Shown here is a 68-nucleotide sequence from Medicago truncatula, a member of the family "MIR2629 microRNA precursor family".
[Rfam]
RNA sequence: UUUUCAGUUUUCCUCGGUAGUUAACUGCAGCCGGUUCCAUAAUUCGACAGUUAACUGACGAGGGGCAU
Numbered sequence: 001u002u003u004u005c006a007g008u009u010u011u012c013c014u015c016g017g018u019a020g021u022u023a024a025c026u027g028c029a030g031c032c033g034g035u036u037c038c039a040u041a042a043u044u045c046g047a048c049a050g051u052u053a054a055c056u057g058a059c060g061a062g063g064g065g066c067a068u
Stems, first nucleotide, its partner, number of pairs: 011064002014061003018057010
Description:
Rfam links the family to the GO terms miRNA-mediated post-transcriptional gene silencing and RISC complex.